The record is a 130-nucleotide RNA sequence from Delphinapterus leucas, which matches "Small nucleolar RNA SNORA3/SNORA45 family" in Rfam. Rfam describes the family as follows. The members of this family belong to the H/ACA class of snoRNAs which are thought to guide the sites of modification of uridines to pseudouridines. This family includes mouse snoMBI-28 and human homologues ACA3 (SNORA3) and ACA3-2 (SNORA45). Both ACA3 and ACA3-2 share the same host gene. MBI-28, ACA3 and ACA3-2 are all predicted to guide the pseudouridylation of residues in 28S rRNA. The family has 6 seed sequences and 2,080 matches in Rfam 15.1. The family is grouped with related families in Rfam's "SNORA3 clan".

RNA sequence: AUCGAGGCUAGAGUCACGCUUGGGUAUCAGCCAUUGUCUUAGUGUGCUAGAGUCCUCAAAGAGUAGCUGCUGACCUUAUUCACUGGCUGUGGCCCUCAUGGCAUAGUCAGUCACCAGUUUAGUGACAUGC
Numbered sequence: 001a002u003c004g005a006g007g008c009u010a011g012a013g014u015c016a017c018g019c020u021u022g023g024g025u026a027u028c029a030g031c032c033a034u035u036g037u038c039u040u041a042g043u044g045u046g047c048u049a050g051a052g053u054c055c056u057c058a059a060a061g062a063g064u065a066g067c068u069g070c071u072g073a074c075c076u077u078a079u080u081c082a083c084u085g086g087c088u089g090u091g092g093c094c095c096u097c098a099u100g101g102c103a104u105a106g107u108c109a110g111u112c113a114c115c116a117g118u119u120u121a122g123u124g125a126c127a128u129g130c
Base pairs, nucleotide, nucleotide: 002059004057005056006055007053008052009051012048013047015046016045017044018043019042020041023038024037025036026035070122071121072120073119075117076116082111083110084109085108086107088105089104090103091102093100